[Rfam]
RNA sequence: UAAACCUUUAAUGUAGUCCUGUGAGGCUAUGAAGGAUACAAACCACUACUUGUGUCAACAUGACAUAAGUCAUUCAUUUUGGGAUUCGUAUACCCUCAUACCUUAAGGUGUGAGGGUUUUUCAUU
Numbered sequence: 001u002a003a004a005c006c007u008u009u010a011a012u013g014u015a016g017u018c019c020u021g022u023g024a025g026g027c028u029a030u031g032a033a034g035g036a037u038a039c040a041a042a043c044c045a046c047u048a049c050u051u052g053u054g055u056c057a058a059c060a061u062g063a064c065a066u067a068a069g070u071c072a073u074u075c076a077u078u079u080u081g082g083g084a085u086u087c088g089u090a091u092a093c094c095c096u097c098a099u100a101c102c103u104u105a106a107g108g109u110g111u112g113a114g115g116g117u118u119u120u121u122c123a124u125u
Base pairs, nucleotide, nucleotide: 003037005035006034007033008032009031013030014029015028016027017026018025045073048070049069050068051067052066053065054064055063056062090119092117093116094115095114096113097112098111099110100109101108102107

The family of this 125-nucleotide RNA sequence from Bacillus sp. J14TS2 is "PyrR binding site". The organism belongs to Bacillus, within Bacteria. The family's RNA type in Rfam is cis-regulatory element. The match comes from Rfam's covariance-model search (61 bits). Gene Ontology terms of the family: pyrimidine nucleobase biosynthetic process and pyrimidine nucleobase transport.